[Rfam]
RNA sequence: UGAUAUGGUCGUAGUGUGACGAACAGUAUAAAAUAAAAAAACACACAUAGGGA
Dot-bracket structure: .....[[.[[[..((((..]]].]].................)))).......
6A RNA: a 53-nucleotide RNA sequence.
Rfam's curators put it in the seed alignment.
Rfam classes the family as a small RNA.